A member of the RNA family "FMN riboswitch aptamer (RFN element)" from Acetobacter aceti, 154 nucleotides long. The match comes from Rfam's covariance-model search (118 bits). The source organism's lineage runs through Bacteria, Pseudomonadati, Alphaproteobacteria, Acetobacteraceae and Acetobacter subgen. Acetobacter. Rfam describes the family as follows. The RFN element is a highly conserved domain that is found frequently in the 5'-untranslated regions of prokaryotic mRNAs that encode for flavin mononucleotide (FMN) biosynthesis and transport proteins.
RNA sequence: AGACGUUCUCAGGGCGGGGUGCAAUUCCCCACCGGCGGUAAUCGCUCCCGAAAGGAAGCGGAAGCCCGCGAGCGCCUUCCUCUCACGAGGCAGGGUCAGCAGAUCCGGUGUAAUUCCGGAGCCGACGGUAUAGUCCGGAUGAAAGAGAACAGCG
Numbered sequence: 001a002g003a004c005g006u007u008c009u010c011a012g013g014g015c016g017g018g019g020u021g022c023a024a025u026u027c028c029c030c031a032c033c034g035g036c037g038g039u040a041a042u043c044g045c046u047c048c049c050g051a052a053a054g055g056a057a058g059c060g061g062a063a064g065c066c067c068g069c070g071a072g073c074g075c076c077u078u079c080c081u082c083u084c085a086c087g088a089g090g091c092a093g094g095g096u097c098a099g100c101a102g103a104u105c106c107g108g109u110g111u112a113a114u115u116c117c118g119g120a121g122c123c124g125a126c127g128g129u130a131u132a133g134u135c136c137g138g139a140u141g142a143a144a145g146a147g148a149a150c151a152g153c154g
Stems, first nucleotide, its partner, number of pairs: 005150006017029003031134002033124002035069004064122002072100002104120005126137003